Description: Shown here is a 107-nucleotide RNA from Acipenser ruthenus, a member of the family "mir-223 microRNA precursor family". Pairs were carried over by alignment from the consensus structure, which was predicted with RNAalifold. Gene Ontology terms of the family: RISC complex and miRNA-mediated post-transcriptional gene silencing. A search with the family's covariance model found it, with a score of 92 bits.
RNA sequence: CUCUGAUUCUCAGGCCCCACACUCAGUGUAUUUGACAAGCUGAGUUGGACACUCAAUUUGGUAUCAGUGUCAGUUUGUCAAAUACCCCAAGUGAGGGGCUUCUUCAC
Number, nucleotide and partner (000 for none) at each position: 001c000002u000003c000004u000005g000006a000007u000008u000009c000010u000011c000012a000013g000014g000015c000016c000017c000018c000019a000020c093021a092022c091023u090024c000025a000026g087027u000028g085029u084030a083031u082032u081033u080034g079035a078036c077037a076038a075039g074040c073041u072042g000043a000044g000045u000046u000047g000048g071049a070050c069051a068052c000053u066054c000055a000056a000057u000058u000059u000060g000061g000062u000063a000064u000065c000066a053067g000068u051069g050070u049071c048072a041073g040074u039075u038076u037077g036078u035079c034080a033081a032082a031083u030084a029085c028086c000087c026088c000089a000090a023091g022092u021093g020094a000095g000096g000097g000098g000099c000100u000101u000102c000103u000104u000105c000106a000107c000
Notes:
NCBI's taxonomy places the organism under Eukaryota, Chordata, Teleostomi, Acipenseroidei, Acipenser. On this family, see Lim et al., Science 2003: "Vertebrate microRNA genes".